[Rfam]
RNA: PreQ1-II (pre queuosine) riboswitch aptamer
RNA sequence: UCCGUUAUACUAUUUCUCGUGGUUCAAUCCACCCUUUGACACUUCCUCACUUUGGUCAAAGCAUAUUACACUCGGGUUUCGCCGAUAAAGGAGAGUUUAUU
Numbered sequence: 001u002c003c004g005u006u007a008u009a010c011u012a013u014u015u016c017u018c019g020u021g022g023u024u025c026a027a028u029c030c031a032c033c034c035u036u037u038g039a040c041a042c043u044u045c046c047u048c049a050c051u052u053u054g055g056u057c058a059a060a061g062c063a064u065a066u067u068a069c070a071c072u073c074g075g076g077u078u079u080c081g082c083c084g085a086u087a088a089a090g091g092a093g094a095g096u097u098u099a100u101u
Stems, first nucleotide, its partner, number of pairs: 019032004035060006047093001050090003072085004
Dot-bracket structure: ..................((((......))))..((((((......[..[[[..))))))...........((((......))))..]]]..]........